[Rfam]
RNA sequence: AUUGAUAUGCUUAUUUCGAAGAUUAAGCCAUGUAAAUGUAAGUGCAUCAUUUCCUUUGAUAAACUGUGCAAGGCUCAAUAAACGAUUUAUAAACACCACGUCUUGCUUAAUCCUAUAAGGAUAACGCAGUCAAAAGCAUCGAUAAUACUUGCUCUCUUAAUCAUCAAAAUUGUAUAUGAUGAGAAUAAUAAACACCUAAUGAAUUAGGUUUAUUUUCUAAAUUUAUUUAGAAUUAACACGUGGUAGUUUAGUCGAUGAUUUUAUCAUCUAUCAGUUUUAUAAGUGUUUAAUUUACACUCAUGACAACCACAGAUACGGAUAAUCAGUGUUUGAUUCCGGAGAAAGAGCCUUAAAAAUGGCUACUAGUACCAAGGUUUGCAACAGGCGCGAAAAUUAUCCAAUGCGAAUAUAUUUCGCGAGAUAGUGAAAAGAAAUAAGCAUCCUAUACUAUUUCAGUUUAGGAGUACCGGUUAGUUGAUAAUCAGUUUACAAUGGUAACAAAUUAGAUAUUUGUUAGAGAAACAAUUAGAGGUCAAGUCAGGUGCCAGCAUCCGCGGUAAUACCUGCUCUAAUAGUCUAUAAUAAAAUUGUUG
Numbered sequence: 001a002u003u004g005a006u007a008u009g010c011u012u013a014u015u016u017c018g019a020a021g022a023u024u025a026a027g028c029c030a031u032g033u034a035a036a037u038g039u040a041a042g043u044g045c046a047u048c049a050u051u052u053c054c055u056u057u058g059a060u061a062a063a064c065u066g067u068g069c070a071a072g073g074c075u076c077a078a079u080a081a082a083c084g085a086u087u088u089a090u091a092a093a094c095a096c097c098a099c100g101u102c103u104u105g106c107u108u109a110a111u112c113c114u115a116u117a118a119g120g121a122u123a124a125c126g127c128a129g130u131c132a133a134a135a136g137c138a139u140c141g142a143u144a145a146u147a148c149u150u151g152c153u154c155u156c157u158u159a160a161u162c163a164u165c166a167a168a169a170u171u172g173u174a175u176a177u178g179a180u181g182a183g184a185a186u187a188a189u190a191a192a193c194a195c196c197u198a199a200u201g202a203a204u205u206a207g208g209u210u211u212a213u214u215u216u217c218u219a220a221a222u223u224u225a226u227u228u229a230g231a232a233u234u235a236a237c238a239c240g241u242g243g244u245a246g247u248u249u250a251g252u253c254g255a256u257g258a259u260u261u262u263a264u265c266a267u268c269u270a271u272c273a274g275u276u277u278u279a280u281a282a283g284u285g286u287u288u289a290a291u292u293u294a295c296a297c298u299c300a301u302g303a304c305a306a307c308c309a310c311a312g313a314u315a316c317g318g319a320u321a322a323u324c325a326g327u328g329u330u331u332g333a334u335u336c337c338g339g340a341g342a343a344a345g346a347g348c349c350u351u352a353a354a355a356a357u358g359g360c361u362a363c364u365a366g367u368a369c370c371a372a373g374g375u376u377u378g379c380a381a382c383a384g385g386c387g388c389g390a391a392a393a394u395u396a397u398c399c400a401a402u403g404c405g406a407a408u409a410u411a412u413u414u415c416g417c418g419a420g421a422u423a424g425u426g427a428a429a430a431g432a433a434a435u436a437a438g439c440a441u442c443c444u445a446u447a448c449u450a451u452u453u454c455a456g457u458u459u460a461g462g463a464g465u466a467c468c469g470g471u472u473a474g475u476u477g478a479u480a481a482u483c484a485g486u487u488u489a490c491a492a493u494g495g496u497a498a499c500a501a502a503u504u505a506g507a508u509a510u511u512u513g514u515u516a517g518a519g520a521a522a523c524a525a526u527u528a529g530a531g532g533u534c535a536a537g538u539c540a541g542g543u544g545c546c547a548g549c550a551u552c553c554g555c556g557g558u559a560a561u562a563c564c565u566g567c568u569c570u571a572a573u574a575g576u577c578u579a580u581a582a583u584a585a586a587a588u589u590g591u592u593g
Base pairs, nucleotide, nucleotide: 001583002582003581005580006579007578009576010575011574014432015431016430020425021388027386028385029384031383032382033381036067037066041065042064043063047059048058074341075340076339084265085264086263089260094257099254100253102251116151117150118149119148125141126140129137130136161182162181163180164179165178168175191210192209193208197206198205199204232247233246234245235244237242267313268312269311274304275303276302279301280300282298283297284296285295286294316338317337318336319335321330322329323328343364346361347360348359366377368375369374394423396422397421398420402418403417404416405415406414458489460487462483463482465480466479468477469476470475496516497515500512501511502510526572527571528570529569530568531567539566540565541564542563548555549554
RNA: Eukaryotic small subunit ribosomal RNA, nucleotides 22 to 614